[Rfam]
RNA sequence: CCAACGUGGACACCUGGGAGGCCGCUCUCCCCGGGCUCUGCCCCGUGAUGUACAAUCCCUCUCCACAAUGUUGGAGAAGAAGCUGGGCCUCGGGUCUGCUCCUGCGCAUUCCUACAACUUCUCAGAGUCCUUUGGGCAGUGACUGAGGAGAUAAACCAUGCAGGAAACAAUG
Numbered sequence: 001c002c003a004a005c006g007u008g009g010a011c012a013c014c015u016g017g018g019a020g021g022c023c024g025c026u027c028u029c030c031c032c033g034g035g036c037u038c039u040g041c042c043c044c045g046u047g048a049u050g051u052a053c054a055a056u057c058c059c060u061c062u063c064c065a066c067a068a069u070g071u072u073g074g075a076g077a078a079g080a081a082g083c084u085g086g087g088c089c090u091c092g093g094g095u096c097u098g099c100u101c102c103u104g105c106g107c108a109u110u111c112c113u114a115c116a117a118c119u120u121c122u123c124a125g126a127g128u129c130c131u132u133u134g135g136g137c138a139g140u141g142a143c144u145g146a147g148g149a150g151a152u153a154a155a156c157c158a159u160g161c162a163g164g165a166a167a168c169a170a171u172g
Stems, first nucleotide, its partner, number of pairs: 001074007008043002011040002013035003017028004045066003101164006118150006127137004